[Rfam]
RNA sequence: UAGAGUGCUGUGAUUUAAAAAUAUAUUCCUCGUUCUGAUCUGAGGAUGUGAGGACUACUUUACACCCAUAGAAUAUGAGCACUC
Numbered sequence: 001u002a003g004a005g006u007g008c009u010g011u012g013a014u015u016u017a018a019a020a021a022u023a024u025a026u027u028c029c030u031c032g033u034u035c036u037g038a039u040c041u042g043a044g045g046a047u048g049u050g051a052g053g054a055c056u057a058c059u060u061u062a063c064a065c066c067c068a069u070a071g072a073a074u075a076u077g078a079g080c081a082c083u084c
Base pairs, nucleotide, nucleotide: 003084004083006081007080
Shown here is an 84-nucleotide RNA from Marchantia polymorpha, a member of the family "Small nucleolar RNA snoR8a". For this family Rfam cites "Multiple snoRNA gene clusters from Arabidopsis" (Brown et al., RNA, 2001). NCBI's taxonomy places the organism under Eukaryota, Embryophyta, Marchantiidae, Marchantia, Marchantia polymorpha. It is annotated as a C/D-box small nucleolar RNA.